[Rfam]
RNA: glmS glucosamine-6-phosphate activated ribozyme aptamer
Organism: Salibacterium salarium
RNA sequence: UUCAUAAUUCAAGCGCCCGGACUGCUCAUACACGGACGGCAGAUGAGAGCAGUUGACGAGGAGGAGGUUCAUCGAAUAAUCGGCGGAUGCCUCCCGGUUGCCUGUCACAACCGAAAAGUCCAGUUACAAACCACAGAGGCGACUUUGUGACCAACGGACUGGAUGAUGACGACC
Numbered sequence: 001u002u003c004a005u006a007a008u009u010c011a012a013g014c015g016c017c018c019g020g021a022c023u024g025c026u027c028a029u030a031c032a033c034g035g036a037c038g039g040c041a042g043a044u045g046a047g048a049g050c051a052g053u054u055g056a057c058g059a060g061g062a063g064g065a066g067g068u069u070c071a072u073c074g075a076a077u078a079a080u081c082g083g084c085g086g087a088u089g090c091c092u093c094c095c096g097g098u099u100g101c102c103u104g105u106c107a108c109a110a111c112c113g114a115a116a117a118g119u120c121c122a123g124u125u126a127c128a129a130a131c132c133a134c135a136g137a138g139g140c141g142a143c144u145u146u147g148u149g150a151c152c153a154a155c156g157g158a159c160u161g162g163a164u165g166a167u168g169a170c171g172a173c174c
Base pairs, nucleotide, nucleotide: 020054021053022052023051024050025049026048027047029045063094064093065092066091067090072083073082074081075080095113096112097111098110099109100108118164119163120162121161122160123159124158132149133148134147135146136145137144138143